Source information
This 78-nucleotide RNA from Crocodylus porosus belongs to the Rfam family "Mammalian CPEB3 ribozyme". Lineage of the source: Eukaryota > Craniata > Dipnotetrapodomorpha > Sauria > Crocodylus.

RNA sequence: GGUCAAGAGAGGGAGGCCAUAGCAGAAGCACUCAUAGCGCGGCCCUGUCAGAUUCCAACAAAUCUGCACAAUCAUGCU
Numbered sequence: 001g002g003u004c005a006a007g008a009g010a011g012g013g014a015g016g017c018c019a020u021a022g023c024a025g026a027a028g029c030a031c032u033c034a035u036a037g038c039g040c041g042g043c044c045c046u047g048u049c050a051g052a053u054u055c056c057a058a059c060a061a062a063u064c065u066g067c068a069c070a071a072u073c074a075u076g077c078u
Stems, first nucleotide, its partner, number of pairs: 013045001015044004021078004027072001028040002049066006